[Rfam]
RNA sequence: GUCGGUCCUCGGUAGUGGUUGCCGGAAGCCGAAACUCGCAUCGCAGGGCAGUGCCCCGGUGCGGGAGUAGAGCCUCCCGGCAACUUCGAUCGAUGGCCGCC
Numbered sequence: 001g002u003c004g005g006u007c008c009u010c011g012g013u014a015g016u017g018g019u020u021g022c023c024g025g026a027a028g029c030c031g032a033a034a035c036u037c038g039c040a041u042c043g044c045a046g047g048g049c050a051g052u053g054c055c056c057c058g059g060u061g062c063g064g065g066a067g068u069a070g071a072g073c074c075u076c077c078c079g080g081c082a083a084c085u086u087c088g089a090u091c092g093a094u095g096g097c098c099g100c101c
Base pairs, nucleotide, nucleotide: 001101003099004098005097006096007095009093010092011091012090013089017085018084019083020082021081022080023079024078025077027075028074
Actino-pnp RNA: a 101-nucleotide RNA sequence from Rhodococcus triatomae. The match comes from Rfam's covariance-model search (57 bits). Pairs were carried over by alignment from the consensus structure, which is taken from published work. The organism belongs to Rhodococcus, within Bacteria.